[Rfam]
RNA sequence: CCACCUGAAGUGUCCCUCAGGACAGCUGGCCUUCAACAAGUCUUAUCUGGUAAAGCGAAUGAUUAGAGGCCUUGGGGUCGAAACGAUCUCAACCUAUUCUCAAACUUUAAAUGGGUAAGAGCAAUGGCUUGCUUCGUUGAAGCGAUUGAAGCCUGGAUUGGAUGGCUCAGUGGGCCAAUUUUGGUAAGCAGAACUGGCGCUGUGGGAUGAACCAAAUGCGGAGUUAAAGCGCCUAAGUCGUAGCUGUGAUACCAUGAAAGGCGUUGCUUGCUCGAGACAGCAGGACGGUGGCCAUGGAAGUCGGAAUCCGCUAAGGAGUGUGUAACAACUCACCUGCCGAAGCAACUAACCCUUAAAAUGGAUGGCGCUGAAGCUACGCGCUUACACUCCGCCGUCAGUGCAAAUGGCCUUCGGGUUCUUGACGCAUUGAUGAGUAAGGUGGUCGUAUGGGUGUGCGUAGAAGGGUCAUGGCGUGAGCCUGCCUGGAGCCGCCCAUAGUGCAGAU
Numbered sequence: 001c002c003a004c005c006u007g008a009a010g011u012g013u014c015c016c017u018c019a020g021g022a023c024a025g026c027u028g029g030c031c032u033u034c035a036a037c038a039a040g041u042c043u044u045a046u047c048u049g050g051u052a053a054a055g056c057g058a059a060u061g062a063u064u065a066g067a068g069g070c071c072u073u074g075g076g077g078u079c080g081a082a083a084c085g086a087u088c089u090c091a092a093c094c095u096a097u098u099c100u101c102a103a104a105c106u107u108u109a110a111a112u113g114g115g116u117a118a119g120a121g122c123a124a125u126g127g128c129u130u131g132c133u134u135c136g137u138u139g140a141a142g143c144g145a146u147u148g149a150a151g152c153c154u155g156g157a158u159u160g161g162a163u164g165g166c167u168c169a170g171u172g173g174g175c176c177a178a179u180u181u182u183g184g185u186a187a188g189c190a191g192a193a194c195u196g197g198c199g200c201u202g203u204g205g206g207a208u209g210a211a212c213c214a215a216a217u218g219c220g221g222a223g224u225u226a227a228a229g230c231g232c233c234u235a236a237g238u239c240g241u242a243g244c245u246g247u248g249a250u251a252c253c254a255u256g257a258a259a260g261g262c263g264u265u266g267c268u269u270g271c272u273c274g275a276g277a278c279a280g281c282a283g284g285a286c287g288g289u290g291g292c293c294a295u296g297g298a299a300g301u302c303g304g305a306a307u308c309c310g311c312u313a314a315g316g317a318g319u320g321u322g323u324a325a326c327a328a329c330u331c332a333c334c335u336g337c338c339g340a341a342g343c344a345a346c347u348a349a350c351c352c353u354u355a356a357a358a359u360g361g362a363u364g365g366c367g368c369u370g371a372a373g374c375u376a377c378g379c380g381c382u383u384a385c386a387c388u389c390c391g392c393c394g395u396c397a398g399u400g401c402a403a404a405u406g407g408c409c410u411u412c413g414g415g416u417u418c419u420u421g422a423c424g425c426a427u428u429g430a431u432g433a434g435u436a437a438g439g440u441g442g443u444c445g446u447a448u449g450g451g452u453g454u455g456c457g458u459a460g461a462a463g464g465g466u467c468a469u470g471g472c473g474u475g476a477g478c479c480u481g482c483c484u485g486g487a488g489c490c491g492c493c494c495a496u497a498g499u500g501c502a503g504a505u
Stems, first nucleotide, its partner, number of pairs: 001442006011024005028167004033162001041120008053108001054106002060102003065097001067095003072092006079085001122148004127143004174198004179193005203214003218392005224386001228382003237379001239378001242375003259353003263350004268345005280337005286310003292304002311315001316331001320329002393432009444500001446497008455489002463484002470479003
The family of this 505-nucleotide part of an RNA from Oryza brachyantha is "Eukaryotic large subunit ribosomal RNA".
For this family Rfam cites "The comparative RNA web (CRW) site: an online database of comparative sequence and structure information for ribosomal, intron, and other RNAs" (Cannone et al., BMC Bioinformatics, 2002).